[Rfam]
RNA sequence: GAAGACCCUGUUGAGCUUGACUCUAGUCUGGCACUGUGAAGAGACAUGAGGGGUGUAGAAUAAGUGGGAGGCCCCCGUUCGCGGGGCGCCGCCGGUGAAAUACCACUACUCUUAUCGUUUCCUCACUUACCCGGUGAGGCGGGGAGGCGAGCCCCCGGCGGGCUCUCGGUUCUGGCGUCAAGCGCUCGGGCCCCCCGCGGCCCGGGCCGCGACCCGCUCCGGGGACAGUGGCAGGUGGGGAGUUUGACUGGGGCGGUACACCUGUCAAACGGUAACGCAGGUGUCCUAAGGCGAGCUCGGGGAGGACGGAAACCUCCCGUGGAGCAGAAGGGCAAAAGCUCGCUUGAUCUUGAUUUUCAGUAUGAAUACGGACCGUGAAAGCGGGGCCUCACGAUCCUUCUGGCUUUUUGGGUUUUAAGCAGGAGGUGUCAGAAAAGUUACCACAGGGAUAACUGGCUUGUGGCGGCCAAGCGUUCAUAGCGACGUCGCUUUUUGAUCCUUCGAUGUCGGCUCUUCCUAUCAUUGUGAAGCAGAAUUCACCAAGCGUUGGAUUGUUCACCCACUAAUAGGGAACGUGAGCUGGGUUUA
Numbered sequence: 001g002a003a004g005a006c007c008c009u010g011u012u013g014a015g016c017u018u019g020a021c022u023c024u025a026g027u028c029u030g031g032c033a034c035u036g037u038g039a040a041g042a043g044a045c046a047u048g049a050g051g052g053g054u055g056u057a058g059a060a061u062a063a064g065u066g067g068g069a070g071g072c073c074c075c076c077g078u079u080c081g082c083g084g085g086g087c088g089c090c091g092c093c094g095g096u097g098a099a100a101u102a103c104c105a106c107u108a109c110u111c112u113u114a115u116c117g118u119u120u121c122c123u124c125a126c127u128u129a130c131c132c133g134g135u136g137a138g139g140c141g142g143g144g145a146g147g148c149g150a151g152c153c154c155c156c157g158g159c160g161g162g163c164u165c166u167c168g169g170u171u172c173u174g175g176c177g178u179c180a181a182g183c184g185c186u187c188g189g190g191c192c193c194c195c196c197g198c199g200g201c202c203c204g205g206g207c208c209g210c211g212a213c214c215c216g217c218u219c220c221g222g223g224g225a226c227a228g229u230g231g232c233a234g235g236u237g238g239g240g241a242g243u244u245u246g247a248c249u250g251g252g253g254c255g256g257u258a259c260a261c262c263u264g265u266c267a268a269a270c271g272g273u274a275a276c277g278c279a280g281g282u283g284u285c286c287u288a289a290g291g292c293g294a295g296c297u298c299g300g301g302g303a304g305g306a307c308g309g310a311a312a313c314c315u316c317c318c319g320u321g322g323a324g325c326a327g328a329a330g331g332g333c334a335a336a337a338g339c340u341c342g343c344u345u346g347a348u349c350u351u352g353a354u355u356u357u358c359a360g361u362a363u364g365a366a367u368a369c370g371g372a373c374c375g376u377g378a379a380a381g382c383g384g385g386g387c388c389u390c391a392c393g394a395u396c397c398u399u400c401u402g403g404c405u406u407u408u409u410g411g412g413u414u415u416u417a418a419g420c421a422g423g424a425g426g427u428g429u430c431a432g433a434a435a436a437g438u439u440a441c442c443a444c445a446g447g448g449a450u451a452a453c454u455g456g457c458u459u460g461u462g463g464c465g466g467c468c469a470a471g472c473g474u475u476c477a478u479a480g481c482g483a484c485g486u487c488g489c490u491u492u493u494u495g496a497u498c499c500u501u502c503g504a505u506g507u508c509g510g511c512u513c514u515u516c517c518u519a520u521c522a523u524u525g526u527g528a529a530g531c532a533g534a535a536u537u538c539a540c541c542a543a544g545c546g547u548u549g550g551a552u553u554g555u556u557c558a559c560c561c562a563c564u565a566a567u568a569g570g571g572a573a574c575g576u577g578a579g580c581u582g583g584g585u586u587u588a
Base pairs, nucleotide, nucleotide: 007447008446009445010444012443013442014439015438016437017436018435020243021242022241023240027235028234029233030232032230033229036126037125038124039123041121042120043119044118045117046115047114048113049112050111051110052109063107064106065105066104067103070090071089130223131222132221133220134219140216141215142214143213149165150164151163152162153161182210183209184208186206246259247257248256249255260282261281262280263279264278265277285386286385291343292342293341294340295339296338297323298322300318301317302316303315304314305313324333325332348372349371350370353367354366355365356364374383375382376381397425398424399423400422401421402420405419406418407417456497458495460494462490463489464488465487466486467485471481472480508583509581510580511579512578513575514572515571516570517569518568521546525540526539527538528537529536548562549561550560552558
Eukaryotic large subunit ribosomal RNA: a 588-nucleotide part of an RNA from Chanos chanos. Gene Ontology terms of the family: structural constituent of ribosome and ribosome. The literature on the family includes a 2001 paper in Science by Yusupov et al., "Crystal structure of the ribosome at 5.5 A resolution".